[Rfam]
RNA: TPP riboswitch aptamer (THI element)
Organism: Pontiella sulfatireligans
RNA sequence: CAUUACCGCUAGGGGUGCCAUCCUGCUUUAGGGCAGGUUGGGCUGAGAAAAACCCUUCGAACCUGUCCGGACAAUGCCGGCGUAGGGAAGCGCGUCGCGCCCCCU
Numbered sequence: 001c002a003u004u005a006c007c008g009c010u011a012g013g014g015g016u017g018c019c020a021u022c023c024u025g026c027u028u029u030a031g032g033g034c035a036g037g038u039u040g041g042g043c044u045g046a047g048a049a050a051a052a053c054c055c056u057u058c059g060a061a062c063c064u065g066u067c068c069g070g071a072c073a074a075u076g077c078c079g080g081c082g083u084a085g086g087g088a089a090g091c092g093c094g095u096c097g098c099g100c101c102c103c104c105u
Stems, first nucleotide, its partner, number of pairs: 007092004011056004016050001017043003062086004067080004